[Rfam]
RNA sequence: GAGGGUAGGCCCCUCGAAGUCUGAUUACAGGACCCGGCUUCAAACCACCACGAGCUGCUGUGAUCAAAAGUCACGGUGGUGAGCGUCGUUGGAAAAGCCACGAUUAACGUGUCAGGU
Numbered sequence: 001g002a003g004g005g006u007a008g009g010c011c012c013c014u015c016g017a018a019g020u021c022u023g024a025u026u027a028c029a030g031g032a033c034c035c036g037g038c039u040u041c042a043a044a045c046c047a048c049c050a051c052g053a054g055c056u057g058c059u060g061u062g063a064u065c066a067a068a069a070g071u072c073a074c075g076g077u078g079g080u081g082a083g084c085g086u087c088g089u090u091g092g093a094a095a096a097g098c099c100a101c102g103a104u105u106a107a108c109g110u111g112u113c114a115g116g117u
Stems, first nucleotide, its partner, number of pairs: 001015005016041006023034001025032002046116001048092002050089004054080002057077003061073004097113001099111004